[Rfam]
Small nucleolar RNA SNORD72: a 78-nucleotide RNA from Rhinoptilus africanus. Rfam describes the family as follows. snoRNA HBII-240 belongs to the CD family of snoRNAs. It is the human orthologue of the mouse MBII-240 and is predicted to guide 2'O-ribose methylation of the large 28S rRNA at residue U4590.

RNA sequence: CGCCUGUUAUUAACAUGUUUCUUAUUAAAAAUGUCUGAACAUAUGAGCUCUAUAUUCAGUGCAUUACUGAGAUAAGCU
Numbered sequence: 001c002g003c004c005u006g007u008u009a010u011u012a013a014c015a016u017g018u019u020u021c022u023u024a025u026u027a028a029a030a031a032u033g034u035c036u037g038a039a040c041a042u043a044u045g046a047g048c049u050c051u052a053u054a055u056u057c058a059g060u061g062c063a064u065u066a067c068u069g070a071g072a073u074a075a076g077c078u
Stems, first nucleotide, its partner, number of pairs: 002077002005074004
NCBI's taxonomy places the organism under Eukaryota, Opisthokonta, Eumetazoa, Charadriiformes, Rhinoptilus. Rfam 15.1 lists 726 matches to the family in 499 species. It scores 44 bits against the family's covariance model. Pairs were carried over by alignment from the consensus structure. Rfam links the family to the GO terms RNA processing and nucleolus. On this family, see Huttenhofer et al., EMBO J 2001: "RNomics: an experimental approach that identifies 201 candidates for novel, small, non-messenger RNAs in mouse".